[Rfam]
RNA sequence: GUGGGUACAAGAAAUCUACUUUAUUCAGCAUACUAACCUAAUUUCUAAGACAUGUUACAUACUUGAAACAUGUCUUAGAAAUUAGUUUUUUUUUUGUUAGUGUGCUGAAUAAAGUAGAUUCUUUGUACCCA
Numbered sequence: 001g002u003g004g005g006u007a008c009a010a011g012a013a014a015u016c017u018a019c020u021u022u023a024u025u026c027a028g029c030a031u032a033c034u035a036a037c038c039u040a041a042u043u044u045c046u047a048a049g050a051c052a053u054g055u056u057a058c059a060u061a062c063u064u065g066a067a068a069c070a071u072g073u074c075u076u077a078g079a080a081a082u083u084a085g086u087u088u089u090u091u092u093u094u095u096g097u098u099a100g101u102g103u104g105c106u107g108a109a110u111a112a113a114g115u116a117g118a119u120u121c122u123u124u125g126u127a128c129c130c131a
Stems, first nucleotide, its partner, number of pairs: 002131010013120013029104009047094002056084002059082002064077003068073001
Rfam assigns this 131-nucleotide RNA from Medicago truncatula to the family "MIR2599 microRNA precursor family". Taxonomically the source falls in Medicago (Eukaryota, Streptophytina, eudicotyledons, rosids).